RNA: mir-9058 microRNA precursor family
Nucleotides: 097
Stems, first nucleotide, its partner, number of pairs: 002096005007086003010082002014080005021073006028067002032064002036061004041056006
Number, partner (000 for none) and nucleotide at each position: 001000g002096u003095g004094g005093u006092u007086g008085c009084u010082g011081g012000g013000c014080a015079g016078g017077g018076g019000c020000u021073c022072u023071c024070u025069a026068c027000u028067a029066g030000u031000a032064c033063u034000g035000u036061g037060c038059a039058g040000a041056g042055g043054c044053u045052u046051u047000c048000a049000c050000u051046g052045a053044g054043g055042c056041u057000g058039c059038u060037g061036u062000g063033a064032g065000a066029c067028u068026g069025u070024a071023g072022a073021g074000u075000c076018u077017c078016c079015c080014u081011c082010u083000g084009g085008g086007c087000c088000a089000c090000u091000g092006a093005g094004c095003u096002a097000g